[Rfam]
RNA sequence: GCAUUCAUUUUUGCUGUUUUUUAUCUGUGUCUGACUGCAGUGUCCAUCUGUAUUUUGCAUUCAGAUCUAACCUCACAAUAAGCAGCUAGGGAGUAAACUGGUAUCAUAGUGCUGGUUUAGUGUUGUCUUUUCAGACAUAUCUACCUCUGGCCAGACUUCAAAUCCUCAAUCUCCU
Number, nucleotide and partner (000 for none) at each position: 001g000002c000003a000004u000005u000006c000007a000008u000009u000010u000011u000012u000013g083014c082015u081016g000017u000018u000019u000020u000021u000022u000023a000024u000025c000026u000027g000028u077029g076030u075031c000032u000033g072034a000035c000036u000037g071038c000039a000040g068041u000042g066043u065044c064045c000046a000047u000048c000049u059050g058051u057052a000053u000054u000055u000056u000057g051058c050059a049060u000061u000062c000063a000064g044065a043066u042067c000068u040069a000070a000071c037072c033073u000074c000075a030076c029077a028078a000079u000080a000081a015082g014083c013084a000085g000086c000087u000088a000089g000090g000091g000092a000093g000094u000095a000096a000097a000098c000099u168100g167101g166102u000103a000104u000105c000106a000107u000108a000109g000110u000111g000112c154113u153114g152115g151116u150117u149118u000119a148120g147121u000122g145123u000124u139125g138126u137127c000128u135129u134130u000131u000132c000133a000134g129135a128136c000137a126138u125139a124140u000141c000142u000143a000144c000145c122146u000147c120148u119149g117150g116151c115152c114153a113154g112155a000156c000157u000158u000159c000160a000161a000162a000163u000164c000165c000166u101167c100168a099169a000170u000171c000172u000173c000174c000175u000
Overview
A member of the RNA family "Small nucleolar RNA SNORA23" from Erinaceus europaeus, 175 nucleotides long. Taxonomically the source falls in Erinaceus (Eukaryota, Sarcopterygii, Mammalia, Laurasiatheria). Rfam links the family to the GO terms nucleolus and RNA processing. About the family: The members of this family belong to the H/ACA class of snoRNAs which are thought to guide the sites of modification of uridines to pseudouridines. This family includes human snoRNA ACA23 (SNORA23) and mouse snoMBI-1. ACA23 is predicted to guide the pseudouridylation of residue U3737 and U4331 of 28S rRNA.